A member of the RNA family "c-di-GMP-I riboswitch aptamer" from Clostridiales bacterium COT073_COT-073, 84 nucleotides long. The base pairs follow the family's consensus structure, which is taken from published work. The source organism's lineage runs through Bacteria, Bacillati, Bacillota, Clostridia and Eubacteriales.
RNA sequence: CACCGAUAAAGGCAAACUGUUCGAAAGGACAGGACGCAAAACUAAAGGGCCUUCCUGAUAGCAGGGUGGUAGCCAGCAACCGAA
Numbered sequence: 001c002a003c004c005g006a007u008a009a010a011g012g013c014a015a016a017c018u019g020u021u022c023g024a025a026a027g028g029a030c031a032g033g034a035c036g037c038a039a040a041a042c043u044a045a046a047g048g049g050c051c052u053u054c055c056u057g058a059u060a061g062c063a064g065g066g067u068g069g070u071a072g073c074c075a076g077c078a079a080c081c082g083a084a
Stems, first nucleotide, its partner, number of pairs: 012037002017032006042076002047074002049070003054065004